[Rfam]
RNA: Vertebrate telomerase RNA
Organism: Cnemophilus loriae
RNA sequence: CGUGCCGGGGUGGGCAGGCCCUGCGGCCAACUAACCCUAAUGGCGGCUGCGCCCCUCACGCCCGCCCGCUGUUUUACUCGCUGACUUUCAGCGGGCAAAGGGAGCGGCCCAGGGAAAGGGGGGGAAAGAAGUCCGGCCUCAAAAAAAGCCAGCGAGGGGGAUCCACACCCCGGCCCACCCUGGGGUCCCUGUCCCUCCUCCGCAACCGGGGAUGCUCCCGCCUUCGCCCCUCGUGGAGGCCGCGGUCGGCAGGCUCAGCGCCACUACCGCCGCGAAGAGCUCGUCUCUGUCAGCCUUGGCGGCGGCCGGGACCAGAGGGCCGGCCCGCCUACCCUGGGCAGCCGGGGGACCCCAGCAGAACAAAACGGGCGCGGCGCCGCCGGGCGCUGAGCAGCCGCGGCUCCCUCAGACGUGGGGUGCGCGGCCGGCGCCGCCCCGACACCC
Numbered sequence: 001c002g003u004g005c006c007g008g009g010g011u012g013g014g015c016a017g018g019c020c021c022u023g024c025g026g027c028c029a030a031c032u033a034a035c036c037c038u039a040a041u042g043g044c045g046g047c048u049g050c051g052c053c054c055c056u057c058a059c060g061c062c063c064g065c066c067c068g069c070u071g072u073u074u075u076a077c078u079c080g081c082u083g084a085c086u087u088u089c090a091g092c093g094g095g096c097a098a099a100g101g102g103a104g105c106g107g108c109c110c111a112g113g114g115a116a117a118g119g120g121g122g123g124g125a126a127a128g129a130a131g132u133c134c135g136g137c138c139u140c141a142a143a144a145a146a147a148g149c150c151a152g153c154g155a156g157g158g159g160g161a162u163c164c165a166c167a168c169c170c171c172g173g174c175c176c177a178c179c180c181u182g183g184g185g186u187c188c189c190u191g192u193c194c195c196u197c198c199u200c201c202g203c204a205a206c207c208g209g210g211g212a213u214g215c216u217c218c219c220g221c222c223u224u225c226g227c228c229c230c231u232c233g234u235g236g237a238g239g240c241c242g243c244g245g246u247c248g249g250c251a252g253g254c255u256c257a258g259c260g261c262c263a264c265u266a267c268c269g270c271c272g273c274g275a276a277g278a279g280c281u282c283g284u285c286u287c288u289g290u291c292a293g294c295c296u297u298g299g300c301g302g303c304g305g306c307c308g309g310g311a312c313c314a315g316a317g318g319g320c321c322g323g324c325c326c327g328c329c330u331a332c333c334c335u336g337g338g339c340a341g342c343c344g345g346g347g348g349a350c351c352c353c354a355g356c357a358g359a360a361c362a363a364a365a366c367g368g369g370c371g372c373g374g375c376g377c378c379g380c381c382g383g384g385c386g387c388u389g390a391g392c393a394g395c396c397g398c399g400g401c402u403c404c405c406u407c408a409g410a411c412g413u414g415g416g417g418u419g420c421g422c423g424g425c426c427g428g429c430g431c432c433g434c435c436c437c438g439a440c441a442c443c444c
Stems, first nucleotide, its partner, number of pairs: 004174009014164001016162001019160004051105002054102002064096008080153004085148001086146003180355007216311005222305001225301004241274005247269003252262003276288004367436004373432006395424005402417004